[Rfam]
RNA: MIR5284 microRNA precursor family
Organism: Medicago truncatula
RNA sequence: AUGUAACAGAUUCCUCCCACUUUUGGUCCCUCAUUUUACGUGUCAUGUAUACAGAUUUUGCUGACGUGGUGGAAUGAGGGACCAAAAGUGGAAGAUUCUGAAAUUACAG
Numbered sequence: 001a002u003g004u005a006a007c008a009g010a011u012u013c014c015u016c017c018c019a020c021u022u023u024u025g026g027u028c029c030c031u032c033a034u035u036u037u038a039c040g041u042g043u044c045a046u047g048u049a050u051a052c053a054g055a056u057u058u059u060g061c062u063g064a065c066g067u068g069g070u071g072g073a074a075u076g077a078g079g080g081a082c083c084a085a086a087a088g089u090g091g092a093a094g095a096u097u098c099u100g101a102a103a104u105u106a107c108a109g
Stems, first nucleotide, its partner, number of pairs: 004106003007100004012095002015092003019089019042070007052060003